[Rfam]
RNA: Plastid-rps12 3UTR RNA
Organism: Nicotiana tabacum
RNA sequence: GGUUUCUGUUGGUGUAAAUCCAAUCACCUGAAUUUAAGAUGAUAAGAAUUUCUCCAUUGGUAACAAAUGGUUAUCCAUUUAGCGGAGGAUAUCUUAU
Number, nucleotide and partner (000 for none) at each position: 001g000002g000003u000004u000005u000006c000007u000008g000009u023010u022011g021012g020013u000014g000015u000016a000017a000018a000019u000020c012021c011022a010023a009024u000025c000026a000027c000028c000029u000030g000031a000032a000033u000034u000035u000036a000037a000038g000039a000040u000041g000042a000043u000044a000045a000046g000047a000048a000049u000050u000051u000052c087053u086054c085055c084056a078057u077058u000059g075060g074061u073062a072063a071064c070065a000066a000067a000068u000069g000070g064071u063072u062073a061074u060075c059076c000077a057078u056079u000080u000081a000082g000083c000084g055085g054086a053087g052088g000089a000090u000091a000092u000093c000094u000095u000096a000097u000